The family of this 70-nucleotide RNA sequence from Roseofilum reptotaenium is "Glutamine riboswitch aptamer (glnA leader)". The match comes from Rfam's covariance-model search (59 bits). For this family Rfam cites "Structural and Dynamic Basis for Low-Affinity, High-Selectivity Binding of L-Glutamine by the Glutamine Riboswitch" (Ren et al., Cell Rep, 2015).

[Rfam]
RNA sequence: AUCGUUCAUCUUACUUUACUUCGUUUGUCGAGUAAGACGGAAGUAAGGAGAAAUCCUGAAGGAACGCGCC
Dot-bracket structure: ..(((((.((((((((.............))))))))..[.....(((......)))....)))))]...